[Rfam]
RNA: Glycine riboswitch aptamer
RNA sequence: CCGCUCUGGAGAGCAGAACACACGGACGCGAUCCGUUGUUCUCGCCCACGGUGAAAGCCUCGCGUCGCGAGGCGAAUCUCUCAGGCCUUCAUGACAGAGGGGGA
Numbered sequence: 001c002c003g004c005u006c007u008g009g010a011g012a013g014c015a016g017a018a019c020a021c022a023c024g025g026a027c028g029c030g031a032u033c034c035g036u037u038g039u040u041c042u043c044g045c046c047c048a049c050g051g052u053g054a055a056a057g058c059c060u061c062g063c064g065u066c067g068c069g070a071g072g073c074g075a076a077u078c079u080c081u082c083a084g085g086c087c088u089u090c091a092u093g094a095c096a097g098a099g100g101g102g103g104a
Stems, first nucleotide, its partner, number of pairs: 001102002004099005015042006044086003048081001051080001053078001057073005